The record is a 56-nucleotide sequence from Thermomonospora curvata, which matches "L17-Actino-Proteobacteria ribosomal protein leader" in Rfam. The family's RNA type in Rfam is cis-regulatory leader. It scores 36 bits against the family's covariance model.
[Rfam]
Nucleotides: 056
Stems, first nucleotide, its partner, number of pairs: 003019006025056001028054001030053007
Number, partner (000 for none) and nucleotide at each position: 001000c002000c003019g004018g005017g006016c007015g008014g009000g010000a011000c012000g013000g014008c015007c016006g017005u018004c019003c020000a021000u022000g023000a024000a025056c026000g027000a028054g029000c030053c031052g032051c033050c034049g035048g036047u037000a038000c039000c040000u041000g042000a043000u044000a045000c046000g047036g048035c049034c050033g051032g052031c053030g054028c055000a056025g